[Rfam]
RNA sequence: AUAAUAACGAUAAGGGUGAUCGCAAGGUCACCCGUUUUUUUGUCUUGUUUGACACUCAAUUGGUUUGGCCGCCGACAAGUCAGAUAAGAUCACUGGUGUUACGUAUAGCUGGCUGUUACCAGGAUUCCUUACUAUCACGAAUAACAGUUUCUUGUAACCGAUGCCUGAGCUUAGUCUCGGGCGUUUUCUUU
Numbered sequence: 001a002u003a004a005u006a007a008c009g010a011u012a013a014g015g016g017u018g019a020u021c022g023c024a025a026g027g028u029c030a031c032c033c034g035u036u037u038u039u040u041u042g043u044c045u046u047g048u049u050u051g052a053c054a055c056u057c058a059a060u061u062g063g064u065u066u067g068g069c070c071g072c073c074g075a076c077a078a079g080u081c082a083g084a085u086a087a088g089a090u091c092a093c094u095g096g097u098g099u100u101a102c103g104u105a106u107a108g109c110u111g112g113c114u115g116u117u118a119c120c121a122g123g124a125u126u127c128c129u130u131a132c133u134a135u136c137a138c139g140a141a142u143a144a145c146a147g148u149u150u151c152u153u154g155u156a157a158c159c160g161a162u163g164c165c166u167g168a169g170c171u172u173a174g175u176c177u178c179g180g181g182c183g184u185u186u187u188c189u190u191u
Base pairs, nucleotide, nucleotide: 014033015032016031017030018029019028020027021026043089048086050084054080055079060075061074062073063072064071098158099157100156101155102154103153111149112148113147114146115145116144117143118142163182164181165180166179167178168177169176
A member of the RNA family "MicX Vibrio cholerae sRNA" from Vibrio mediterranei, 191 nucleotides long. The organism belongs to Vibrio mediterranei, within Bacteria. The family's RNA type in Rfam is small RNA. The literature on the family includes a 2007 paper in Mol Microbiol by Davis and Waldor, "RNase E-dependent processing stabilizes MicX, a Vibrio cholerae sRNA".